[Rfam]
RNA sequence: CGGUUCCAAACGGAUAAGGGUCUGAAAAACUCAAAGAUCAAUGUGUGUUGUUUAUCAGCUUCAUUUCUUGUUUAACCCACGAGAUUGGAGUUAAAUAACAGCACUACAGAU
Numbered sequence: 001c002g003g004u005u006c007c008a009a010a011c012g013g014a015u016a017a018g019g020g021u022c023u024g025a026a027a028a029a030c031u032c033a034a035a036g037a038u039c040a041a042u043g044u045g046u047g048u049u050g051u052u053u054a055u056c057a058g059c060u061u062c063a064u065u066u067c068u069u070g071u072u073u074a075a076c077c078c079a080c081g082a083g084a085u086u087g088g089a090g091u092u093a094a095a096u097a098a099c100a101g102c103a104c105u106a107c108a109g110a111u
Base pairs, nucleotide, nucleotide: 045104046103047102048101049100050099057092058091059090060089061088062087064084065083066082067081
Record summary: Small nucleolar RNA snoR97: a 111-nucleotide RNA sequence from Arachis hypogaea. The family's RNA type in Rfam is H/ACA-box small nucleolar RNA. The family's consensus secondary structure was predicted with WAR. A reference for the family is Marker et al. (2002), "Experimental RNomics: identification of 140 candidates for small non-messenger RNAs in the plant Arabidopsis thaliana", Curr Biol. Rfam links the family to the GO terms RNA processing and nucleolus. Lineage of the source: Eukaryota > Streptophyta > Streptophytina > Fabaceae > Arachis.